[Rfam]
RNA sequence: GCCCUGUGGUUACUGGAUGCCAUAGUGCAAGUACAGUUUUCCAGUGGAUGUGAGGAGCCAGAGCAAGCCUGUGAUCUACACAUGGAGGCUGUUUCUCUUCCAUAGUGAGUGCAGCCCUGUCACUGAUAAUAUGG
Numbered sequence: 001g002c003c004c005u006g007u008g009g010u011u012a013c014u015g016g017a018u019g020c021c022a023u024a025g026u027g028c029a030a031g032u033a034c035a036g037u038u039u040u041c042c043a044g045u046g047g048a049u050g051u052g053a054g055g056a057g058c059c060a061g062a063g064c065a066a067g068c069c070u071g072u073g074a075u076c077u078a079c080a081c082a083u084g085g086a087g088g089c090u091g092u093u094u095c096u097c098u099u100c101c102a103u104a105g106u107g108a109g110u111g112c113a114g115c116c117c118u119g120u121c122a123c124u125g126a127u128a129a130u131a132u133g134g
Stems, first nucleotide, its partner, number of pairs: 001058002004055001007050002010047008019037002023033001069125001071123005081114001083111002088106005
A member of the RNA family "Small nucleolar RNA SNORA84" from Phyllostomus discolor, 134 nucleotides long.
The source organism's lineage runs through Eukaryota, Dipnotetrapodomorpha, Boreoeutheria, Laurasiatheria and Phyllostomus.
Rfam classes the family as an H/ACA-box small nucleolar RNA.
Gene Ontology terms of the family: RNA processing and nucleolus.